Shown here is a 105-nucleotide RNA from Nyctereutes procyonoides, a member of the family "mir-8834 microRNA precursor family". Pairs were carried over by alignment from the consensus structure, which was predicted with RNAalifold.
RNA sequence: AGGAGGAACAACCGCAGUGGCGGGGCCAGCUCUGGAGCCCUGGAGUUAGCUCCCGCAGUAACUACGGGGCUCUCAAUCUGCAGGGCAUUGAGGCUUCUGGGCGGG
Numbered sequence: 001a002g003g004a005g006g007a008a009c010a011a012c013c014g015c016a017g018u019g020g021c022g023g024g025g026c027c028a029g030c031u032c033u034g035g036a037g038c039c040c041u042g043g044a045g046u047u048a049g050c051u052c053c054c055g056c057a058g059u060a061a062c063u064a065c066g067g068g069g070c071u072c073u074c075a076a077u078c079u080g081c082a083g084g085g086c087a088u089u090g091a092g093g094c095u096u097c098u099g100g101g102c103g104g105g
Base pairs, nucleotide, nucleotide: 002097003096004095005094010088012085013084019078020077023074024073025072028071029070030069031068032067033066034065036063040058041057042056
Its family is annotated with RISC complex and miRNA-mediated post-transcriptional gene silencing in the Gene Ontology.